[Rfam]
RNA sequence: CUAUAAUAAAUCCAUACAGCUCGUAUAUAUUUGGAAAUAGGGUCCAAACGUUUCUACCGAACUACCGUAAAUGGUUUGACUACGAGAGGGAUAGGCUGCAUG
Number, nucleotide and partner (000 for none) at each position: 001c000002u000003a000004u000005a000006a000007u000008a000009a000010a000011u000012c000013c000014a000015u000016a000017c000018a000019g000020c086021u085022c084023g083024u082025a081026u000027a000028u000029a000030u048031u047032u046033g045034g044035a043036a000037a000038u000039a000040g000041g000042g000043u035044c034045c033046a032047a031048a030049c000050g000051u000052u000053u000054c000055u000056a000057c000058c078059g077060a076061a075062c074063u073064a072065c000066c000067g000068u000069a000070a000071a000072u064073g063074g062075u061076u060077u059078g058079a000080c000081u025082a024083c023084g022085a021086g020087a000088g000089g000090g000091a000092u000093a000094g000095g000096c000097u000098g000099c000100a000101u000102g000
RNA: Purine riboswitch aptamer
Organism: Halobacillus sp. BAB-2008